[Rfam]
RNA sequence: AUUAUAUAAAAAAUAGGGGAUGAAAUCCCCUGCCGUACUAAGGAGGGUGCUCAGACUGCGAAAGCAGUCGUCGAAGGGAAC
Numbered sequence: 001a002u003u004a005u006a007u008a009a010a011a012a013a014u015a016g017g018g019g020a021u022g023a024a025a026u027c028c029c030c031u032g033c034c035g036u037a038c039u040a041a042g043g044a045g046g047g048u049g050c051u052c053a054g055a056c057u058g059c060g061a062a063a064g065c066a067g068u069c070g071u072c073g074a075a076g077g078g079a080a081c
Stems, first nucleotide, its partner, number of pairs: 014032007054069005